Record summary:
Shown here is a 78-nucleotide RNA sequence from Drosophila grimshawi, a member of the family "bZIP non canonical Hac1/Xbp1 intron". It is annotated as a small RNA.
RNA sequence: GGCUGUGCGUCCACAUACACUGGAUCUGCAGCAUCCAAUGCUGACUCUGCCGCAGGGUAUAUUAGUGGACACACAGUC
Number, nucleotide and partner (000 for none) at each position: 001g078002g077003c076004u075005g074006u073007g072008c000009g070010u069011c068012c067013a066014c000015a000016u000017a000018c000019a000020c000021u037022g036023g035024a034025u033026c000027u000028g000029c000030a000031g000032c000033a025034u024035c023036c022037a021038a000039u000040g000041c000042u000043g000044a000045c055046u054047c000048u000049g000050c000051c000052g000053c000054a046055g045056g000057g000058u000059a000060u000061a000062u000063u000064a000065g000066u013067g012068g011069a010070c009071a000072c007073a006074c005075a004076g003077u002078c001

bZIP intron RNA is a non-canonical intron that was first reported in HAC1 gene in yeast and XBP1 gene in Metazoa. Pairs were carried over by alignment from the consensus structure, which was predicted with RNAfold.